[Rfam]
RNA sequence: AAGGUGGAAGCUGAAAAACCGAAUUAGAGUAGGCA
Dot-bracket structure: ..(((....[[[.....)))...........]]].
Description:
The record is a 35-nucleotide RNA sequence from Pedobacter polaris, which matches "DUF805b RNA" in Rfam. Pairs were carried over by alignment from the consensus structure, which is taken from published work. The source organism's lineage runs through Bacteria, Pseudomonadati, Sphingobacteriales, Sphingobacteriaceae and Pedobacter.